Rfam assigns this 131-nucleotide RNA sequence from Fulmarus glacialis to the family "Small Cajal body specific RNA 23". Rfam classes the family as a small Cajal body RNA.
[Rfam]
RNA sequence: AUGCUCACAAGAACACUUAUCCUGCCACGUGGCUGAGAUGAGGUCUGGGAAAAUGUGAGCUAGAGCACGAGUAUUGCUUUGGGAGUGUCACAUUCCAGGCCACAUGAGACACUACAGUUUUCAAUACAACA
Numbered sequence: 001a002u003g004c005u006c007a008c009a010a011g012a013a014c015a016c017u018u019a020u021c022c023u024g025c026c027a028c029g030u031g032g033c034u035g036a037g038a039u040g041a042g043g044u045c046u047g048g049g050a051a052a053a054u055g056u057g058a059g060c061u062a063g064a065g066c067a068c069g070a071g072u073a074u075u076g077c078u079u080u081g082g083g084a085g086u087g088u089c090a091c092a093u094u095c096c097a098g099g100c101c102a103c104a105u106g107a108g109a110c111a112c113u114a115c116a117g118u119u120u121u122c123a124a125u126a127c128a129a130c131a
Base pairs, nucleotide, nucleotide: 003060004059005058006057007056008055013044014043017041018040019039020038025032026031071127073125074124075123076122079117080116081115084113085112086111087110088109089108091106093102
The source organism's lineage runs through Eukaryota, Euteleostomi, Tetrapoda, Theropoda and Fulmarus. For this family Rfam cites "Cajal body-specific small nuclear RNAs: a novel class of 2'-O-methylation and pseudouridylation guide RNAs" (Darzacq et al., EMBO J, 2002).